[Rfam]
RNA: Alphaproteobacterial sRNA BjrC1505
Organism: Cohaesibacter sp. ES.047
RNA sequence: UUCUUACCAUUAACCAUUUAUUAAUAAAGUUAAGUUUAAAUACUAAGUAUCCAUAGCUUAUGGAUUUCGAGUGGCUCCUGUCACUCUGUUUGACGCCUCCCUGUUAACUCCUGAGAGCCGCUUGUCGCGGCUCUUUUUUU
Dot-bracket structure: (..(((............))((...(((......)))))..)..)...((((.........))))...(((((........))))).....((((......)))).......(((((((((.....))))))))).....
Numbered sequence: 001u002u003c004u005u006a007c008c009a010u011u012a013a014c015c016a017u018u019u020a021u022u023a024a025u026a027a028a029g030u031u032a033a034g035u036u037u038a039a040a041u042a043c044u045a046a047g048u049a050u051c052c053a054u055a056g057c058u059u060a061u062g063g064a065u066u067u068c069g070a071g072u073g074g075c076u077c078c079u080g081u082c083a084c085u086c087u088g089u090u091u092g093a094c095g096c097c098u099c100c101c102u103g104u105u106a107a108c109u110c111c112u113g114a115g116a117g118c119c120g121c122u123u124g125u126c127g128c129g130g131c132u133c134u135u136u137u138u139u140u
Stems, first nucleotide, its partner, number of pairs: 001045001004042001005020002021039002026037003049065004069086005092105004113135009